[Rfam]
RNA: M-box riboswitch aptamer (ykoK leader)
Organism: Paenalicyclobacillus mengziensis
RNA sequence: ACCAGUCCUCGUUAGGCGAGGCGUCUAUGUAAACAUAGGCCACUGCCCGGAAACGUCGAAAGACGCCAAUGGGUCACCAGGUAUUGCCGGAUUAAGGCUUUACCUAAUGUGGCUGAGUGCAAACUCUACGUUGCAUAGUGCUAAAGCUCAACCAGGGGGAUGUAC
Numbered sequence: 001a002c003c004a005g006u007c008c009u010c011g012u013u014a015g016g017c018g019a020g021g022c023g024u025c026u027a028u029g030u031a032a033a034c035a036u037a038g039g040c041c042a043c044u045g046c047c048c049g050g051a052a053a054c055g056u057c058g059a060a061a062g063a064c065g066c067c068a069a070u071g072g073g074u075c076a077c078c079a080g081g082u083a084u085u086g087c088c089g090g091a092u093u094a095a096g097g098c099u100u101u102a103c104c105u106a107a108u109g110u111g112g113c114u115g116a117g118u119g120c121a122a123a124c125u126c127u128a129c130g131u132u133g134c135a136u137a138g139u140g141c142u143a144a145a146g147c148u149c150a151a152c153c154a155g156g157g158g159g160a161u162g163u164a165c
Base pairs, nucleotide, nucleotide: 005161006160007159008158009157010156011152012151013095015148016147017146020142021141022140025138026137027136028135029134030133031132032131039113040112041111042110043109045074046073047072048071049070054065055064056063057062080104081103082102083101086098087097088096115126116125117124
Dot-bracket structure: ....(((((((([.(((..(((..((((((((......(((((.(((((....((((....))))....))))).....((((..(((......])))..))))....))))).(((......)))....)))))))).)))...)))..))...))))))....